[Rfam]
RNA sequence: AGGAGGACUGAGAAGGUUGGACAGCUUAUAUUGUGCUGUUAAAACUGGUUAUAACCUCCAAGAGGAACAAACAAACCACACGCUUCAUUCACUUUGUGUUGAGCAGAGCUGAUUUGUGUGUUUGUAUAACAA
Numbered sequence: 001a002g003g004a005g006g007a008c009u010g011a012g013a014a015g016g017u018u019g020g021a022c023a024g025c026u027u028a029u030a031u032u033g034u035g036c037u038g039u040u041a042a043a044a045c046u047g048g049u050u051a052u053a054a055c056c057u058c059c060a061a062g063a064g065g066a067a068c069a070a071a072c073a074a075a076c077c078a079c080a081c082g083c084u085u086c087a088u089u090c091a092c093u094u095u096g097u098g099u100u101g102a103g104c105a106g107a108g109c110u111g112a113u114u115u116g117u118g119u120g121u122u123u124g125u126a127u128a129a130c131a132a
Base pairs, nucleotide, nucleotide: 002059003058004057005056006055015046016045017044018043020040021039022038023037024036025035072124073123074122077120078119080117081116082115